Overview:
A member of the RNA family "mir-184 microRNA precursor family" from Medioppia subpectinata, 82 nucleotides long. Pairs were carried over by alignment from the consensus structure, which was predicted with PFOLD. The source organism's lineage runs through Eukaryota, Protostomia, Oribatida, Brachypylina and Medioppia. On this family, see Chen et al., Genes Dev 2005: "The developmental miRNA profiles of zebrafish as determined by small RNA cloning". A search with the family's covariance model found it, with a score of 55 bits.

RNA sequence: UGCUCUUCGUCUCCUUAUCAUUUCCGCUGUCCAGACUUUAUAUGAGGUUCUGGACGGAGAACUGAUAAGGGCGGGGGGAGUA
Numbered sequence: 001u002g003c004u005c006u007u008c009g010u011c012u013c014c015u016u017a018u019c020a021u022u023u024c025c026g027c028u029g030u031c032c033a034g035a036c037u038u039u040a041u042a043u044g045a046g047g048u049u050c051u052g053g054a055c056g057g058a059g060a061a062c063u064g065a066u067a068a069g070g071g072c073g074g075g076g077g078g079a080g081u082a
Stems, first nucleotide, its partner, number of pairs: 012071009022061003027056001030053002
Dot-bracket structure: ...........(((((((((.(((..(..((....................))..)..))).)))))))))...........